A member of the RNA family "nhaA-I RNA", 53 nucleotides long.
By type it is a riboswitch.
About the family: Acidobacteria, Alphaproteobacteria, Betaproteobacteria and Gammaproteobacteria, Verrucomicrobia, cand. division NC10.
The base pairs follow the family's consensus structure, which is taken from published work.

[Rfam]
RNA sequence: GGGUGUUCGGGAAAUCGUUUCGGGCAGGUUUCAAGCUGGUCGGGCCGCCAGCA
Numbered sequence: 001g002g003g004u005g006u007u008c009g010g011g012a013a014a015u016c017g018u019u020u021c022g023g024g025c026a027g028g029u030u031u032c033a034a035g036c037u038g039g040u041c042g043g044g045c046c047g048c049c050a051g052c053a
Stems, first nucleotide, its partner, number of pairs: 005025008035052006